[Rfam]
RNA sequence: CUCUUAUCCAGAGCGGUGGAGGGGCUGGCCUUAUGAAACCGCGGCAACCUCAAAUGAUUCAUGUUUGAAAGGUGCCAAUUCCUGCGAGGCGAAAGCUUUGGCAGAUAGGGG
Numbered sequence: 001c002u003c004u005u006a007u008c009c010a011g012a013g014c015g016g017u018g019g020a021g022g023g024g025c026u027g028g029c030c031u032u033a034u035g036a037a038a039c040c041g042c043g044g045c046a047a048c049c050u051c052a053a054a055u056g057a058u059u060c061a062u063g064u065u066u067g068a069a070a071g072g073u074g075c076c077a078a079u080u081c082c083u084g085c086g087a088g089g090c091g092a093a094a095g096c097u098u099u100g101g102c103a104g105a106u107a108g109g110g111g
Base pairs, nucleotide, nucleotide: 001111002110003109004108005107006106007105008104013042014041015040016039017038021031022030023029025084027082028081043076044075045074046073048072049071050068051067052066053065054064055063080103085100086099087098088097089096090095
RNA: SAM riboswitch aptamer (S box leader)
Organism: Lentibacillus salicampi